Shown here is a 109-nucleotide RNA sequence from Camelimonas lactis, a member of the family "SAM-I/IV (S-adenosyl methionine) riboswitch aptamer".
It scores 54 bits against the family's covariance model.
The base pairs follow the family's consensus structure, which is taken from published work.

RNA sequence: GCCUUACAUCAGGAGUUGGGAUGGUUUCCCAACGCCAACCUGCCUGUUCCGGGCAAGGUGGCGCUCCCCAAGGGGAGGAUGUGGCCGACCGGCAACCAAACGGAACCAG
Numbered sequence: 001g002c003c004u005u006a007c008a009u010c011a012g013g014a015g016u017u018g019g020g021a022u023g024g025u026u027u028c029c030c031a032a033c034g035c036c037a038a039c040c041u042g043c044c045u046g047u048u049c050c051g052g053g054c055a056a057g058g059u060g061g062c063g064c065u066c067c068c069c070a071a072g073g074g075g076a077g078g079a080u081g082u083g084g085c086c087g088a089c090c091g092g093c094a095a096c097c098a099a100a101c102g103g104a105a106c107c108a109g
Stems, first nucleotide, its partner, number of pairs: 006082005015033006034062003039058003042054003047104003084093003
The family has 417 seed sequences and 567 matches in Rfam 15.1. Gene Ontology terms of the family: S-adenosylmethionine metabolic process and regulation of gene expression. Its Rfam clan is "SAM clan".